Source information
A member of the RNA family "Small nucleolar RNA SNORD124" from Cricetulus griseus, 103 nucleotides long. Pairs were carried over by alignment from the consensus structure, which was predicted with WAR. Gene Ontology terms of the family: nucleolus and RNA processing. Rfam classes the family as a C/D-box small nucleolar RNA. A search with the family's covariance model found it, with a score of 107 bits. NCBI's taxonomy places the organism under Eukaryota, Chordata, Teleostomi, Tetrapoda, Cricetulus.
RNA sequence: GGUUUCCAAGGAAGGGAUGAUGUUCUAAGUAAGACCCAAGAAAAGGAUUCUGAGCCUUAGAGCUUUGAAGCACCCACUGGGCCCUGACCUUCCUUCAGGAAAU
Numbered sequence: 001g002g003u004u005u006c007c008a009a010g011g012a013a014g015g016g017a018u019g020a021u022g023u024u025c026u027a028a029g030u031a032a033g034a035c036c037c038a039a040g041a042a043a044a045g046g047a048u049u050c051u052g053a054g055c056c057u058u059a060g061a062g063c064u065u066u067g068a069a070g071c072a073c074c075c076a077c078u079g080g081g082c083c084c085u086g087a088c089c090u091u092c093c094u095u096c097a098g099g100a101a102a103u
Stems, first nucleotide, its partner, number of pairs: 009094007